[Rfam]
Nucleotides: 133
Stems, first nucleotide, its partner, number of pairs: 004063005011057005018045003023040003073123004079117003087111003093105003
Number, partner (000 for none) and nucleotide at each position: 001000a002000g003000a004063c005062u006061c007060c008059c009000a010000g011057c012056u013055c014054u015053g016000c017000c018045a019044g020043u021000u022000c023040c024039a025038c026000u027000a028000g029000g030000c031000u032000u033000c034000a035000c036000u037000g038025g039024u040023g041000u042000u043020g044019c045018u046000u047000u048000u049000g050000u051000a052000a053015c054014a055013g056012g057011g058000a059008g060007g061006g062005a063004g064000a065000g066000a067000a068000a069000g070000g071000a072000u073123c074122u075121c076120u077000c078000c079117a080116g081115g082000a083000c084000c085000u086000c087111g088110g089109a090000u091000c092000a093105g094104u095103c096000u097000u098000a099000c100000u101000g102000u103095g104094g105093c106000c107000u108000c109089u110088c111087u112000u113000u114000c115081c116080u117079u118000g119000a120076g121075g122074g123073g124000c125000a126000c127000a128000g129000u130000a131000g132000g133000u
This 133-nucleotide RNA from Callithrix jacchus belongs to the Rfam family "Small nucleolar RNA SNORA64/SNORA10 family".
Rfam 15.1 lists 703 matches to the family in 311 species.
The family's RNA type in Rfam is H/ACA-box small nucleolar RNA.
Rfam's curators write: This family belongs to the H/ACA class of small nucleolar RNAs (snoRNAs) which act as guides in the the modification of uridines to pseudouridines. This family includes the human snoRNAs U64 and ACA10 and mouse MBI-29.
The base pairs follow the family's consensus structure, which is taken from published work.